[Rfam]
RNA: Small nucleolar RNA R44/J54/Z268 family
Nucleotides: 091
Stems, first nucleotide, its partner, number of pairs: 003089004
Number, partner (000 for none) and nucleotide at each position: 001000a002000a003089u004088g005087c006086a007000a008000u009000u010000g011000a012000u013000g014000a015000u016000a017000a018000a019000a020000a021000g022000a023000c024000u025000g026000g027000g028000a029000c030000a031000u032000c033000a034000g035000a036000a037000c038000u039000c040000c041000a042000g043000u044000u045000u046000u047000g048000g049000a050000g051000u052000a053000g054000g055000g056000a057000u058000a059000g060000a061000c062000c063000a064000a065000g066000u067000c068000u069000a070000c071000g072000a073000u074000g075000g076000g077000a078000a079000u080000c081000u082000c083000g084000g085000a086006u087005g088004c089003a090000a091000u